The family of this 183-nucleotide RNA sequence from Liquorilactobacillus ghanensis is "Listeria sRNA rli28". It scores 96 bits against the family's covariance model. Lineage of the source: Bacteria > Bacillota > Bacilli > Lactobacillaceae > Liquorilactobacillus ghanensis.
RNA sequence: UAAUUCAUGAUAUACUAAUUUAAGUAGAGAAGUUAAGGCGGUGGCUAAGCCCUUAAGGUGGUGAUGCCAAUGAUUAAAUAUCAUCUGCAUUAUUCCUUAGAAAGGAAUUAGUGUGUCAGUAUUUGAAGCUCUGGUGUUGGCGAUUAGUUUUGCUACAUUAGUUGUUGAAAUAUUGAAAUUUAG
Numbered sequence: 001u002a003a004u005u006c007a008u009g010a011u012a013u014a015c016u017a018a019u020u021u022a023a024g025u026a027g028a029g030a031a032g033u034u035a036a037g038g039c040g041g042u043g044g045c046u047a048a049g050c051c052c053u054u055a056a057g058g059u060g061g062u063g064a065u066g067c068c069a070a071u072g073a074u075u076a077a078a079u080a081u082c083a084u085c086u087g088c089a090u091u092a093u094u095c096c097u098u099a100g101a102a103a104g105g106a107a108u109u110a111g112u113g114u115g116u117c118a119g120u121a122u123u124u125g126a127a128g129c130u131c132u133g134g135u136g137u138u139g140g141c142g143a144u145u146a147g148u149u150u151u152g153c154u155a156c157a158u159u160a161g162u163u164g165u166u167g168a169a170a171u172a173u174u175g176a177a178a179u180u181u182a183g
Stems, first nucleotide, its partner, number of pairs: 041156005057098002060094005066088002115135003119131001122128001162177002